[Rfam]
RNA: THF (Tetrahydrofolate) riboswitch aptamer
RNA sequence: GGCAGAGUAAGCGGUUUGCGUAAAGUGCUAAGGGAUGGGACGUUGCCCUUAGACGAAGAGCUUCAAGUAGUUUGCGAUAAACCGUUGCGUUCGCUGUC
Numbered sequence: 001g002g003c004a005g006a007g008u009a010a011g012c013g014g015u016u017u018g019c020g021u022a023a024a025g026u027g028c029u030a031a032g033g034g035a036u037g038g039g040a041c042g043u044u045g046c047c048c049u050u051a052g053a054c055g056a057a058g059a060g061c062u063u064c065a066a067g068u069a070g071u072u073u074g075c076g077a078u079a080a081a082c083c084g085u086u087g088c089g090u091u092c093g094c095u096g097u098c
Base pairs, nucleotide, nucleotide: 001098002097003096004095005094010086011085012084013083014082015081016080017079018078019076020075021074025054026053028052029051030050031049032048033047034046038092039091040090041089042088058073059072060071061070